Rfam assigns this 100-nucleotide RNA sequence from Brachypodium distachyon to the family "Small nucleolar RNA R11/Z151". Pairs were carried over by alignment from the consensus structure, which was predicted with PFOLD. A reference for the family is Barneche et al. (2001), "Identification of 66 box C/D snoRNAs in Arabidopsis thaliana: extensive gene duplications generated multiple isoforms predicting new ribosomal RNA 2'-O-methylation sites", J Mol Biol.

Nucleotides: 100
Stems, first nucleotide, its partner, number of pairs: 002099004
Number, partner (000 for none) and nucleotide at each position: 001000u002099g003098g004097c005096u006000g007000g008000u009000g010000a011000u012000g013000a014000u015000u016000c017000a018000g019000g020000u021000c022000c023000g024000a025000a026000a027000g028000g029000a030000u031000c032000u033000u034000a035000g036000c037000g038000g039000a040000u041000u042000u043000c044000g045000g046000u047000g048000a049000g050000g051000c052000g053000g054000a055000c056000u057000c058000g059000u060000c061000c062000g063000c064000c065000g066000u067000u068000g069000a070000u071000c072000g073000a074000u075000u076000c077000a078000u079000g080000u081000u082000g083000u084000u085000a086000c087000a088000c089000a090000c091000a092000c093000u094000g095000a096005a097004g098003c099002c100000u
The family's RNA type in Rfam is C/D-box small nucleolar RNA.